[Rfam]
RNA sequence: GGUCAAGAAUUUGAGGCCACAGCAGAAGCGCUUAUGGUGCAGCUCUGUCAGAUUCCACAAAACUGCAAAUUCUGCU
Numbered sequence: 001g002g003u004c005a006a007g008a009a010u011u012u013g014a015g016g017c018c019a020c021a022g023c024a025g026a027a028g029c030g031c032u033u034a035u036g037g038u039g040c041a042g043c044u045c046u047g048u049c050a051g052a053u054u055c056c057a058c059a060a061a062a063c064u065g066c067a068a069a070u071u072c073u074g075c076u
Stems, first nucleotide, its partner, number of pairs: 013045002016043002021076007028040003049065003053061002
Shown here is a 76-nucleotide RNA from Crocodylus porosus, a member of the family "Mammalian CPEB3 ribozyme".
A search with the family's covariance model found it, with a score of 43 bits.
NCBI's taxonomy places the organism under Eukaryota, Opisthokonta, Dipnotetrapodomorpha, Sauropsida, Crocodylus.
Rfam 15.1 lists 5,706 matches to the family in 197 species.
Pairs were carried over by alignment from the consensus structure, which is taken from published work.